This 87-nucleotide RNA from Paramixta manurensis belongs to the Rfam family "Peptidase-S11 RNA". The source organism's lineage runs through Bacteria, Pseudomonadati, Pseudomonadota, Gammaproteobacteria and Paramixta. It is annotated as a cis-regulatory element.
RNA sequence: AGUAUGAUGCUGCUGCCAGCCCCGUGCGGCCUGAUUUUCACGGCGGCGGCCUGUGUUUUGACACAGCAAAAUAUUAACCCGGUUAAG
Dot-bracket structure: ..............(((.((((((((............))))).))))))((((((....)))))).....................